A member of the RNA family "c-di-GMP-II-GAG riboswitch aptamer" from Pelolinea submarina, 112 nucleotides long.
RNA sequence: UUUUCAAAUGAAAGCGAUGAAACUGUGCACAUAAAUGGUCGCUGAAAUGGGGUAAGCCGCCUAACCCAUGGAGUGCGCAGUGGAGCGAGUAGCGAAACCGGUCAUGUACGAA
Numbered sequence: 001u002u003u004u005c006a007a008a009u010g011a012a013a014g015c016g017a018u019g020a021a022a023c024u025g026u027g028c029a030c031a032u033a034a035a036u037g038g039u040c041g042c043u044g045a046a047a048u049g050g051g052g053u054a055a056g057c058c059g060c061c062u063a064a065c066c067c068a069u070g071g072a073g074u075g076c077g078c079a080g081u082g083g084a085g086c087g088a089g090u091a092g093c094g095a096a097a098c099c100g101g102u103c104a105u106g107u108a109c110g111a112a
Base pairs, nucleotide, nucleotide: 001112002111003110006107008105009104010103011102014086015085022081023080024079025078026077027076028075029074037099038098039095040094041093042092043091

A search with the family's covariance model found it, with a score of 44 bits.